[Rfam]
RNA sequence: GAAAAUUUGCUCUUUUAGUAUUUGUCAAGAAGGGUUCUAAAGUUUUAGAACCCACC
Numbered sequence: 001g002a003a004a005a006u007u008u009g010c011u012c013u014u015u016u017a018g019u020a021u022u023u024g025u026c027a028a029g030a031a032g033g034g035u036u037c038u039a040a041a042g043u044u045u046u047a048g049a050a051c052c053c054a055c056c
Stems, first nucleotide, its partner, number of pairs: 032053009
A member of the RNA family "U7 small nuclear RNA" from Pangasianodon hypophthalmus, 56 nucleotides long. The organism belongs to Pangasianodon, within Eukaryota. Animal histone pre-mRNAs are spliced by a different mechanism than nuclear pre-mRNAs and self-splicing introns. This processing involves the U7 snRNP, which contains only one RNA species: U7. The 5' end of U7 RNA is thought to base-pair to a conserved spacer element downstream of the cleavage site in histone pre-mRNA. This family contains a number of annotated U7 pseudogenes.